c-di-AMP riboswitch aptamer (ydaO/yuaA leader): a 143-nucleotide sequence from Ureibacillus massiliensis.
Lineage of the source: Bacteria > Bacillota > Caryophanales > Ureibacillus > Ureibacillus massiliensis.
From the family's description: This family represents a conserved RNA structure found upstream of the ydaO and yuaA genes in Bacillus subtilis and related genes in other bacteria. The ydaO/yuaA element is thought to act as a genetic 'off' switch for the ydaO and yuaA genes in its native state. It is believed that the element may be triggered during osmotic shock leading to activation of ydaO, a predicted amino acid transporter gene, and members of the yuaA-yubG operon which code for KtrA and KtrB K+ transporters.

[Rfam]
RNA sequence: AUUUCAUAAUGGCCUAAUCUCAUUUAAAUGAGAACGGAGGAACCAAUCUUUUUGGGGUUAAUUCUGCAUUUGCAGAAGGGAUGAUUUAACUCUUUCGCCAUCCUACCCGUCAGCUAACUUCGUCGGCUAAUGCGAAGGAGGUC
Number, nucleotide and partner (000 for none) at each position: 001a000002u000003u000004u000005c000006a000007u000008a000009a000010u000011g128012g127013c126014c125015u000016a000017a000018u033019c032020u031021c030022a029023u028024u000025u000026a000027a000028a023029u022030g021031a020032g019033a018034a123035c122036g121037g120038a119039g118040g000041a000042a000043c000044c054045a053046a000047u000048c000049u000050u000051u000052u000053u045054g044055g108056g107057g106058u000059u000060a000061a000062u000063u076064c075065u074066g073067c000068a000069u000070u000071u000072g000073c066074a065075g064076a063077a000078g000079g103080g102081a101082u100083g000084a000085u000086u000087u000088a000089a000090c000091u000092c000093u000094u000095u000096c000097g000098c000099c000100a082101u081102c080103c079104u000105a000106c057107c056108c055109g000110u000111c000112a000113g000114c000115u000116a000117a000118c039119u038120u037121c036122g035123u034124c000125g014126g013127c012128u011129a000130a000131u000132g000133c000134g000135a000136a000137g000138g000139a000140g000141g000142u000143c000